A member of the RNA family "Vault RNA" from Oryzias javanicus, 98 nucleotides long. It is annotated as a non-coding RNA gene. About the family: This family of RNAs are found as part of the enigmatic vault ribonucleoprotein complex. The complex consists of a major vault protein (MVP), two minor vault proteins (VPARP and TEP1), and several small untranslated RNA molecules. It has been suggested that the vault complex is involved in drug resistance. The organism belongs to Oryzias, within Eukaryota.

RNA sequence: GCGCUGGUUUAGCUCAGCGGUUACUUCAGCUCAAAUCAUUUCAUGAUUACGCUCUCACCCUCACGGGUUCGAAACCACGGGCGCUGUCCAGUGCUUUU
Numbered sequence: 001g002c003g004c005u006g007g008u009u010u011a012g013c014u015c016a017g018c019g020g021u022u023a024c025u026u027c028a029g030c031u032c033a034a035a036u037c038a039u040u041u042c043a044u045g046a047u048u049a050c051g052c053u054c055u056c057a058c059c060c061u062c063a064c065g066g067g068u069u070c071g072a073a074a075c076c077a078c079g080g081g082c083g084c085u086g087u088c089c090a091g092u093g094c095u096u097u098u
Stems, first nucleotide, its partner, number of pairs: 002093006012082004017078001019076002025073003029069001